[Rfam]
A member of the RNA family "Y RNA" from Piliocolobus tephrosceles, 102 nucleotides long. A reference for the family is Chen et al. (2000), "Ro ribonucleoproteins contribute to the resistance of Deinococcus radiodurans to ultraviolet irradiation", Genes Dev.

RNA sequence: GGCUGGUCAAAGUGCAGUGGUGUUUUCAAUCAAUUUAUCACAACCAGUUACAAAUUUCUUUGUUCCUUCUCUACUCCCACUGCUUCACUCGACAAGCCUAAA
Numbered sequence: 001g002g003c004u005g006g007u008c009a010a011a012g013u014g015c016a017g018u019g020g021u022g023u024u025u026u027c028a029a030u031c032a033a034u035u036u037a038u039c040a041c042a043a044c045c046a047g048u049u050a051c052a053a054a055u056u057u058c059u060u061u062g063u064u065c066c067u068u069c070u071c072u073a074c075u076c077c078c079a080c081u082g083c084u085u086c087a088c089u090c091g092a093c094a095a096g097c098c099u100a101a102a
Base pairs, nucleotide, nucleotide: 001098002097003096004095006093007092008091011089014086016081017080018079019078020077022076028064029063030062032060033059

About this RNA
Lineage of the source: Eukaryota > Bilateria > Boreoeutheria > Catarrhini > Piliocolobus. By type it is a non-coding RNA gene.